[Rfam]
The family of this 64-nucleotide RNA sequence from Tupaia belangeri is "mir-29 microRNA precursor family". Lineage of the source: Eukaryota > Eumetazoa > Amniota > Euarchontoglires > Tupaia belangeri. From the family's description: This family represents the microRNA (miRNA) precursors mir-29. Rfam's curators put it in the seed alignment. The base pairs follow the family's consensus structure, which was predicted with PFOLD.
RNA sequence: CUGGUUUCACAUGGUGGCUUAGAUUUUUCCAUCUUUGUAUCUAGCACCAUUUGAAAUCAGUGUU
Numbered sequence: 001c002u003g004g005u006u007u008c009a010c011a012u013g014g015u016g017g018c019u020u021a022g023a024u025u026u027u028u029c030c031a032u033c034u035u036u037g038u039a040u041c042u043a044g045c046a047c048c049a050u051u052u053g054a055a056a057u058c059a060g061u062g063u064u
Stems, first nucleotide, its partner, number of pairs: 001060009011050006020043004